Overview:
Shown here is a 115-nucleotide sequence from Burkholderiales bacterium JOSHI_001, a member of the family "Glycine riboswitch aptamer". A search with the family's covariance model found it, with a score of 54 bits.
[Rfam]
RNA sequence: GCGUUCCUCGACUGGAGAGAGGCGGGUGCUGCAACCCGUCCACCGAAGGGGCAAGCGGGCCGCCGGCCGAACCGGCGCCGCCAAUCUCUCAGGUAAAGCGGACAGCGAGGGCACG
Numbered sequence: 001g002c003g004u005u006c007c008u009c010g011a012c013u014g015g016a017g018a019g020a021g022g023c024g025g026g027u028g029c030u031g032c033a034a035c036c037c038g039u040c041c042a043c044c045g046a047a048g049g050g051g052c053a054a055g056c057g058g059g060c061c062g063c064c065g066g067c068c069g070a071a072c073c074g075g076c077g078c079c080g081c082c083a084a085u086c087u088c089u090c091a092g093g094u095a096a097a098g099c100g101g102a103c104a105g106c107g108a109g110g111g112c113a114c115g
Base pairs, nucleotide, nucleotide: 006110007109008108009107010106012105013104014103021040022039023038024037042094043093044092045090046089049088050087051086055081056080057079058078
Taxonomically the source falls in Burkholderiales (Bacteria, Pseudomonadati, Pseudomonadota, Betaproteobacteria).